The family of this 47-nucleotide sequence from Hordeum vulgare is "Plastid-ycf3 group II-D1 intron".
The family's consensus secondary structure was predicted with LocARNA.
Rfam's curators write: Plastid rpl16 is a non-coding RNA (ncRNA) recognised in plastids.
The source organism's lineage runs through Eukaryota, Streptophyta, Streptophytina, Embryophyta and Hordeum vulgare.
The literature on the family includes a 2023 paper in Plant Commun by Richter et al., "Retrograde signaling in plants: A critical review focusing on the GUN pathway and beyond".

RNA sequence: AUUCCUUCCGUCGUGUAUCCUCGAUUGAUGCGGCUUGAUAUACUUCA
Numbered sequence: 001a002u003u004c005c006u007u008c009c010g011u012c013g014u015g016u017a018u019c020c021u022c023g024a025u026u027g028a029u030g031c032g033g034c035u036u037g038a039u040a041u042a043c044u045u046c047a
Stems, first nucleotide, its partner, number of pairs: 010025004032044002